[Rfam]
Nucleotides: 190
Stems, first nucleotide, its partner, number of pairs: 020069007029060001078109005086098004110128006133180005139175002148166004153162003
Number, partner (000 for none) and nucleotide at each position: 001000c002000u003000a004000g005000c006000a007000a008000u009000a010000c011000a012000a013000g014000c015000g016000c017000c018000a019000g020069a021068g022067c023066u024065u025064g026063c027000g028000u029060g030000c031000g032000g033000g034000a035000u036000g037000g038000c039000a040000c041000g042000g043000a044000g045000a046000a047000g048000c049000a050000a051000u052000u053000a054000u055000c056000a057000u058000c059000c060029c061000g062000g063026g064025c065024a066023a067022g068021c069020u070000g071000a072000c073000g074000a075000g076000g077000u078109g079108g080107a081106g082105g083000u084000g085000u086098u087097c088096g089095a090000a091000u092000g093000g094000u095089u096088c097087g098086g099000c100000g101000g102000g103000g104000a105082c106081c107080u108079c109078c110128c111127g112126g113125u114124a115123g116000c117000g118000g119000c120000a121000u122000u123115c124114u125113a126112c127111c128110g129000u130000c131000a132000a133180g134179c135178u136177g137176c138000a139175g140174c141000u142000u143000c144000a145000a146000a147000a148166c149165g150164a151163c152000g153162c154161g155160g156000g157000c158000a159000a160155c161154c162153g163151g164150u165149c166148g167000c168000a169000c170000a171000a172000a173000g174140g175139c176137g177136u178135a179134g180133c181000g182000u183000a184000a185000u186000g187000c188000u189000u190000g